The family of this 80-nucleotide sequence from Coptotermes formosanus is "mir-263 microRNA precursor family".
For this family Rfam cites "Direct sequencing and expression analysis of a large number of miRNAs in Aedes aegypti and a multi-species survey of novel mosquito miRNAs" (Li et al., BMC Genomics, 2009).
A search with the family's covariance model found it, with a score of 58 bits.
Taxonomically the source falls in Coptotermes (Eukaryota, Allotriocarida, Hexapoda, Insecta).
Its family is annotated with miRNA-mediated post-transcriptional gene silencing and RISC complex in the Gene Ontology.
The base pairs follow the family's consensus structure, which was predicted with RNAalifold.

RNA sequence: AAGCUGUGCGCCUUGGCACUGGAAGAAUUCACAGAUAGACAUGAAAAUCGUGGAUCUCCCUGUGCCAAAGCGUACGGAAC
Numbered sequence: 001a002a003g004c005u006g007u008g009c010g011c012c013u014u015g016g017c018a019c020u021g022g023a024a025g026a027a028u029u030c031a032c033a034g035a036u037a038g039a040c041a042u043g044a045a046a047a048u049c050g051u052g053g054a055u056c057u058c059c060c061u062g063u064g065c066c067a068a069a070g071c072g073u074a075c076g077g078a079a080c
Stems, first nucleotide, its partner, number of pairs: 004077007013068006021060002023057001025056002029053004034048001